RNA sequence: GAGCAAUAAAAAGCGCCAGAACUAUUUUCUGAUCGGAAAAGAAAAUAGUAGACGAGGUGGAGGUUUAUCGAGUAAUUCGGCGGGUGCCUCCCGAUUGUACAUCUCAAUCGAUAUGCUUUAUUCCGAAAACAAUGAGGUGACUUGUUGAACAAUGGAAUAAAGAGAGAUGCCA
Numbered sequence: 001g002a003g004c005a006a007u008a009a010a011a012a013g014c015g016c017c018a019g020a021a022c023u024a025u026u027u028u029c030u031g032a033u034c035g036g037a038a039a040a041g042a043a044a045a046u047a048g049u050a051g052a053c054g055a056g057g058u059g060g061a062g063g064u065u066u067a068u069c070g071a072g073u074a075a076u077u078c079g080g081c082g083g084g085u086g087c088c089u090c091c092c093g094a095u096u097g098u099a100c101a102u103c104u105c106a107a108u109c110g111a112u113a114u115g116c117u118u119u120a121u122u123c124c125g126a127a128a129a130c131a132a133u134g135a136g137g138u139g140a141c142u143u144g145u146u147g148a149a150c151a152a153u154g155g156a157a158u159a160a161a162g163a164g165a166g167a168u169g170c171c172a
Stems, first nucleotide, its partner, number of pairs: 021049007029041001059091005068080004092110006116162007130147007
RNA: glmS glucosamine-6-phosphate activated ribozyme aptamer